RNA sequence: UCACCCGACGCGCCGCUGUGGCGUCGAGGGAGAGCCGGGGACCCACCACAGCACUGGGGUGAGUUCUCGCGUGCGCCGGUCCGCCGGUGGCACCAGAGAUAGGGCGCCUUCUUCCCAGUCCGAACCCGUCAGCUAACUCGGUAGGCCGUCGCUGAGGAAGAA
Numbered sequence: 001u002c003a004c005c006c007g008a009c010g011c012g013c014c015g016c017u018g019u020g021g022c023g024u025c026g027a028g029g030g031a032g033a034g035c036c037g038g039g040g041a042c043c044c045a046c047c048a049c050a051g052c053a054c055u056g057g058g059g060u061g062a063g064u065u066c067u068c069g070c071g072u073g074c075g076c077c078g079g080u081c082c083g084c085c086g087g088u089g090g091c092a093c094c095a096g097a098g099a100u101a102g103g104g105c106g107c108c109u110u111c112u113u114c115c116c117a118g119u120c121c122g123a124a125c126c127c128g129u130c131a132g133c134u135a136a137c138u139c140g141g142u143a144g145g146c147c148g149u150c151g152c153u154g155a156g157g158a159a160g161a162a
Stems, first nucleotide, its partner, number of pairs: 001031001034142006044056002057127003065099004102121004
RNA: c-di-AMP riboswitch aptamer (ydaO/yuaA leader)